[Rfam]
RNA sequence: CAACCGUCAUUGAGAGAUGGCGCUGAACGGGCAGGAGUCAGCAGACGCCAUAGUACACAAAUGUGUACACAUUUGUGGAAGGGC
Numbered sequence: 001c002a003a004c005c006g007u008c009a010u011u012g013a014g015a016g017a018u019g020g021c022g023c024u025g026a027a028c029g030g031g032c033a034g035g036a037g038u039c040a041g042c043a044g045a046c047g048c049c050a051u052a053g054u055a056c057a058c059a060a061a062u063g064u065g066u067a068c069a070c071a072u073u074u075g076u077g078g079a080a081g082g083g084c
Stems, first nucleotide, its partner, number of pairs: 001025002005022007037046003047084003056077006
This 84-nucleotide RNA from Ferroacidibacillus organovorans belongs to the Rfam family "Group II catalytic intron D1-D4-1". Rfam describes the family as follows. Group II introns are found in rRNA, tRNA and mRNA of organelles in fungi, plants and protists, and also in mRNA in bacteria. Gene Ontology term of the family: Group II intron splicing. Taxonomically the source falls in Ferroacidibacillus (Bacteria, Bacillati, Caryophanales, Alicyclobacillaceae). For this family Rfam cites "The ins and outs of group II introns" (Bonen and Vogel, Trends Genet, 2001). It scores 74 bits against the family's covariance model.